A member of the RNA family "Small nucleolar RNA SNORA77" from Cebus imitator, 135 nucleotides long.
ACA63 (SNORA77) is a member of the H/ACA class of snoRNAs that guide the sites of modification of uridines to pseudouridines. This snoRNA was identified by computational screening and its expression in mouse experimentally verified by Northern blot and primer extension analysis. ACA63 is proposed to guide the pseudouridylation of 18S rRNA U814.
The organism belongs to Cebus, within Eukaryota.
On this family, see Schattner et al., RNA 2006: "A computational screen for mammalian pseudouridylation guide H/ACA RNAs".
It is annotated as an H/ACA-box small nucleolar RNA.
It scores 47 bits against the family's covariance model.
RNA sequence: GCAGACUCGCUACGUGCCUGGCUGCAGCCCCCGGGGGGGUGCUUGUUCCCUCUGCCAGAGAAACAAACAUUCCUUAUAGGUCAGUGCUGUGGGCCCCUGACCUAUAAGGGUAUGCAGCUGCCUGGAGAUACAGAG
Numbered sequence: 001g002c003a004g005a006c007u008c009g010c011u012a013c014g015u016g017c018c019u020g021g022c023u024g025c026a027g028c029c030c031c032c033g034g035g036g037g038g039g040u041g042c043u044u045g046u047u048c049c050c051u052c053u054g055c056c057a058g059a060g061a062a063a064c065a066a067a068c069a070u071u072c073c074u075u076a077u078a079g080g081u082c083a084g085u086g087c088u089g090u091g092g093g094c095c096c097c098u099g100a101c102c103u104a105u106a107a108g109g110g111u112a113u114g115c116a117g118c119u120g121c122c123u124g125g126a127g128a129u130a131c132a133g134a135g
Stems, first nucleotide, its partner, number of pairs: 001055005014042006022034003071126003078123004086118006095110004